[Rfam]
RNA sequence: AAGAUGUUAUAUGACUGACGGAACAAGUGGAAGAACCACAUGGAGUAUAACGUAUCUAAUGCCGACCGUCUGGGCGAAUGUA
Numbered sequence: 001a002a003g004a005u006g007u008u009a010u011a012u013g014a015c016u017g018a019c020g021g022a023a024c025a026a027g028u029g030g031a032a033g034a035a036c037c038a039c040a041u042g043g044a045g046u047a048u049a050a051c052g053u054a055u056c057u058a059a060u061g062c063c064g065a066c067c068g069u070c071u072g073g074g075c076g077a078a079u080g081u082a
Stems, first nucleotide, its partner, number of pairs: 004053009015042001017070005027039004060076004